[Rfam]
RNA sequence: GGGAAUGAUAUCAAUAGCCUAAGUCAUACGGGGAAACCAUAUUUUGGGGUGAAUCGCUUUUUAGCGUAGGUUUUGCCUUUACCUAACCCGUCAGCUAACCUCGUAGAAUAAAAGGAGGAAGA
Numbered sequence: 001g002g003g004a005a006u007g008a009u010a011u012c013a014a015u016a017g018c019c020u021a022a023g024u025c026a027u028a029c030g031g032g033g034a035a036a037c038c039a040u041a042u043u044u045u046g047g048g049g050u051g052a053a054u055c056g057c058u059u060u061u062u063a064g065c066g067u068a069g070g071u072u073u074u075g076c077c078u079u080u081a082c083c084u085a086a087c088c089c090g091u092c093a094g095c096u097a098a099c100c101u102c103g104u105a106g107a108a109u110a111a112a113a114g115g116a117g118g119a120a121g122a
Stems, first nucleotide, its partner, number of pairs: 005027005028104006038046002047089003055066004069083003
Overview:
c-di-AMP riboswitch aptamer (ydaO/yuaA leader): a 122-nucleotide sequence from Clostridium pasteurianum. It scores 72 bits against the family's covariance model.